[Rfam]
Nucleotides: 156
Stems, first nucleotide, its partner, number of pairs: 003029004008024005032071005038065004043060002045056002076105006085098003110126004115121002129150007
Number, partner (000 for none) and nucleotide at each position: 001000c002000c003029u004028c005027c006026g007000u008024c009023u010022u011021c012020c013000c014000c015000g016000c017000a018000c019000a020012g021011g022010a023009a024008g025000g026006c027005g028004g029003a030000c031000c032071g033070a034069g035068g036067a037000a038065c039064c040063g041062g042000c043060g044059c045056u046055c047000u048000c049000u050000g051000c052000c053000c054000u055046g056045a057000c058000u059044g060043c061000u062041c063040c064039g065038g066000c067036u068035c069034c070033u071032c072000u073000c074000u075000u076105c077104g078103g079102c080101c081100g082000a083000c084000c085098g086097g087096g088000a089000c090000c091000g092000c093000a094000c095000a096087c097086c098085c099000g100081u101080g102079g103078c104077c105076g106000u107000u108000g109000u110126u111125g112124c113123u114000c115121c116120g117000g118000g119000c120116u121115g122000c123113g124112g125111u126110g127000c128000c129150g130149g131148g132147a133146g134145g135144g136000u137000u138000g139000a140000g141000g142000g143000u144135c145134c146133c147132u148131c149130c150129c151000a152000g153000g154000c155000g156000c
Shown here is a 156-nucleotide sequence from Streptomyces sp. HG99, a member of the family "Streptomyces sRNA scr5239".
For this family Rfam cites "Identification of metE as a second target of the sRNA scr5239 in Streptomyces coelicolor" (Vockenhuber et al., PLoS One, 2015).
The family's consensus secondary structure is taken from published work.
NCBI's taxonomy places the organism under Bacteria, Bacillati, Kitasatosporales, Streptomycetaceae, Streptomyces.
It scores 159 bits against the family's covariance model.